[Rfam]
Nucleotides: 065
Base pairs, nucleotide, nucleotide: 021065022064023063024062033053034052035051036050037049038048
Number, partner (000 for none) and nucleotide at each position: 001000c002000a003000a004000u005000c006000g007000g008000a009000a010000u011000g012000a013000u014000g015000g016000u017000c018000a019000a020000a021065g022064c023063u024062c025000a026000u027000g028000a029000a030000a031000g032000u033053u034052g035051u036050a037049g038048g039000u040000u041000u042000u043000u044000u045000u046000g047000u048038c049037c050036u051035g052034c053033a054000a055000u056000c057000u058000u059000c060000u061000a062024g063023g064022g065021u